Shown here is a 264-nucleotide part of an RNA from Acinetobacter pittii, a member of the family "Bacterial large subunit ribosomal RNA". The family's consensus secondary structure is taken from published work. The match comes from Rfam's covariance-model search (2855 bits).
RNA sequence: GGAAAUUUGAGAGGAUCUGCUCCUAGUACGAGAGGACCAGAGUGGACGAACCUCUGGUGUACCGGUUGUGACGCCAGUCGCAUCGCCGGGUAGCUAUGUUCGGAAGGGAUAACCGCUGAAAGCAUCUAAGCGGGAAGCCUACCUCAAGAUAAGAUUUCCCUAGGAAUUUAUUCCUCUAAAGAGCCGUUCGAGACUAGGACGUUGAUAGGUUGGAUGUGGAAGCAUAGUGAUAUGUGAAGCUGACCAAUACUAAUUGCUCGUGAG
Numbered sequence: 001g002g003a004a005a006u007u008u009g010a011g012a013g014g015a016u017c018u019g020c021u022c023c024u025a026g027u028a029c030g031a032g033a034g035g036a037c038c039a040g041a042g043u044g045g046a047c048g049a050a051c052c053u054c055u056g057g058u059g060u061a062c063c064g065g066u067u068g069u070g071a072c073g074c075c076a077g078u079c080g081c082a083u084c085g086c087c088g089g090g091u092a093g094c095u096a097u098g099u100u101c102g103g104a105a106g107g108g109a110u111a112a113c114c115g116c117u118g119a120a121a122g123c124a125u126c127u128a129a130g131c132g133g134g135a136a137g138c139c140u141a142c143c144u145c146a147a148g149a150u151a152a153g154a155u156u157u158c159c160c161u162a163g164g165a166a167u168u169u170a171u172u173c174c175u176c177u178a179a180a181g182a183g184c185c186g187u188u189c190g191a192g193a194c195u196a197g198g199a200c201g202u203u204g205a206u207a208g209g210u211u212g213g214a215u216g217u218g219g220a221a222g223c224a225u226a227g228u229g230a231u232a233u234g235u236g237a238a239g240c241u242g243a244c245c246a247a248u249a250c251u252a253a254u255u256g257c258u259c260g261u262g263a264g
Stems, first nucleotide, its partner, number of pairs: 001159008011145004017045006047102005055096003062089005067082006106140003113133005162175003178261001181259004185201005206252003209248005216240001222235005